[Rfam]
About this RNA: Archaeal RNase P: a 364-nucleotide RNA from Methanimicrococcus blatticola. Ribonuclease P (RNase P) is a ubiquitous endoribonuclease, found in archaea, bacteria and eukarya as well as chloroplasts and mitochondria. Its best characterised activity is the generation of mature 5'-ends of tRNAs by cleaving the 5'-leader elements of precursor-tRNAs. NCBI's taxonomy places the organism under Archaea, Methanobacteriati, Methanobacteriota, Methanosarcinaceae, Methanimicrococcus. The base pairs follow the family's consensus structure, which is taken from published work. A search with the family's covariance model found it, with a score of 164 bits. The family's RNA type in Rfam is ribozyme.
RNA sequence: GGGAGCGGCAGGGCGGCUGCGGGAAUUCAAUUUCCUGAGGAAAGUCUCCCCACCCUCUUUCAAAUUUGCGGAUGUUUGUGAAGAACAUUUGGCGAGAGUCAAGGCUAUGGCACAGAAACGAUACCGGGCCGUGUUUGCGAUGAUGUGAAAAACUGAGGCGCACGGCGCACGGAUGCAACGGUAAAACCCCGCAGGUGCAAGUUGUAUCGGGAGUACGCGUUCGAUUUGAAAGCGCGCCUGAUGUUAAAAGACGCACAGCCGAAUGCCGCCGUACAUUUCAUAAAAUUCAAUUUUAUUGAUGAAUCAAAGAUAAGAAUGUUCUUUGAAAGUACAGAAAACAGAAGGGAGCUUACUCGCCGGACCC
Number, nucleotide and partner (000 for none) at each position: 001g364002g363003g362004a000005g000006c359007g358008g357009c356010a354011g353012g270013g269014c268015g267016g266017c265018u000019g000020c037021g036022g035023g034024a033025a000026u000027u000028c000029a000030a000031u000032u000033u024034c023035c022036u021037g020038a000039g000040g000041a000042a351043a350044g349045u000046c348047u347048c346049c345050c344051c197052a196053c195054c194055c000056u000057c000058u224059u223060u000061c000062a000063a000064a000065u000066u000067u193068g192069c191070g190071g189072a088073u087074g086075u085076u084077u000078g000079u000080g000081a000082a000083g000084a076085a075086c074087a073088u072089u102090u101091g100092g099093c098094g000095a000096g000097a000098g093099u092100c091101a090102a089103g188104g187105c000106u000107a000108u184109g000110g182111c181112a000113c000114a000115g000116a000117a000118a000119c000120g000121a000122u000123a000124c172125c171126g170127g000128g166129c165130c164131g163132u162133g161134u160135u000136u000137g000138c000139g000140a000141u000142g000143a000144u000145g153146u152147g000148a000149a000150a000151a000152a146153c145154u000155g000156a000157g000158g000159c000160g134161c133162a132163c131164g130165g129166c128167g000168c000169a000170c126171g125172g124173a000174u000175g000176c000177a000178a000179c000180g000181g111182u110183a000184a108185a000186a000187c104188c103189c071190c070191g069192c068193a067194g054195g053196u052197g051198c000199a000200a000201g252202u251203u250204g000205u000206a242207u241208c240209g239210g000211g000212a000213g000214u000215a000216c000217g000218c000219g000220u000221u000222c000223g059224a058225u000226u000227u000228g000229a000230a000231a000232g000233c000234g000235c000236g000237c000238c000239u209240g208241a207242u206243g000244u000245u000246a000247a000248a000249a000250g203251a202252c201253g000254c000255a000256c000257a000258g000259c000260c000261g000262a000263a000264u000265g017266c016267c015268g014269c013270c012271g000272u000273a000274c000275a000276u000277u000278u000279c000280a000281u000282a000283a000284a000285a000286u000287u000288c000289a000290a000291u000292u000293u000294u000295a000296u000297u000298g000299a000300u000301g000302a000303a000304u000305c000306a000307a000308a000309g000310a000311u000312a000313a000314g000315a000316a000317u000318g000319u000320u000321c000322u000323u000324u000325g000326a000327a000328a000329g000330u000331a000332c000333a000334g000335a000336a000337a000338a000339c000340a000341g000342a000343a000344g050345g049346g048347a047348g046349c044350u043351u042352a000353c011354u010355c000356g009357c008358c007359g006360g000361a000362c003363c002364c001